[Rfam]
RNA sequence: GGUAAAAUGGCUGAGUAAGCAUUAGACUGUAAAUCUAAAGACAGGGGUUGAGCCCCCUUUUUACCA
Numbered sequence: 001g002g003u004a005a006a007a008u009g010g011c012u013g014a015g016u017a018a019g020c021a022u023u024a025g026a027c028u029g030u031a032a033a034u035c036u037a038a039a040g041a042c043a044g045g046g047g048u049u050g051a052g053c054c055c056c057c058u059u060u061u062u063a064c065c066a
Stems, first nucleotide, its partner, number of pairs: 001065007010020003022038005043058005
RNA: tRNA